[Rfam]
Annotation: Rfam assigns this 114-nucleotide RNA sequence from Lysinibacillus sp. 2017 to the family "RNA Staph. aureus E (RoxS)". By type it is a small RNA. It was shown to be regulated by the presence of nitric oxide (NO). In Bacillus subtilis it controls expression of genes with functions related to oxidative stress and oxidation-reduction reactions and it was renamed RoxS (for related to oxidative stress).

RNA sequence: GUGAAAUAAAUCACAUAACAAACAUACACCCCUUUGUUUGAACGUGAACAUUUCUCCCAUCCCCUUUGUGAAAAAAGAGGCGUCCUAUCUGAUGAAGAUAGGGGCGCCUCUUUU
Numbered sequence: 001g002u003g004a005a006a007u008a009a010a011u012c013a014c015a016u017a018a019c020a021a022a023c024a025u026a027c028a029c030c031c032c033u034u035u036g037u038u039u040g041a042a043c044g045u046g047a048a049c050a051u052u053u054c055u056c057c058c059a060u061c062c063c064c065u066u067u068g069u070g071a072a073a074a075a076a077g078a079g080g081c082g083u084c085c086u087a088u089c090u091g092a093u094g095a096a097g098a099u100a101g102g103g104g105c106g107c108c109u110c111u112u113u114u
Base pairs, nucleotide, nucleotide: 003054004053005052006051007050011047012046013045014044019040020039021038022037023036024035076111077110078109079108080107081106082105083104084103085102086101
The base pairs follow the family's consensus structure, which is taken from published work.